A member of the RNA family "Fluoride riboswitch aptamer (crcB RNA motif)" from Holtiella tumoricola, 78 nucleotides long. A search with the family's covariance model found it, with a score of 36 bits. The organism belongs to Holtiella, within Bacteria. Rfam links the family to the GO terms response to fluoride and positive regulation of gene expression.
[Rfam]
RNA sequence: AUGACCGAAGGGAAUGAAUGUCUCCCUUGGACUUAGUAUCCAAAACUGCUCUUACAAGCUGAUGACUUCUGCCACAAG
Number, nucleotide and partner (000 for none) at each position: 001a000002u000003g000004a000005c000006c000007g000008a000009a000010g026011g025012g024013a023014a000015u000016g069017a068018a067019u000020g066021u065022c064023u013024c012025c011026c010027u000028u000029g000030g000031a000032c000033u000034u000035a000036g000037u000038a000039u000040c000041c000042a000043a000044a000045a000046c000047u000048g059049c058050u057051c000052u000053u000054a000055c000056a000057a050058g049059c048060u000061g000062a000063u000064g022065a021066c020067u018068u017069c016070u000071g000072c000073c000074a000075c000076a000077a000078g000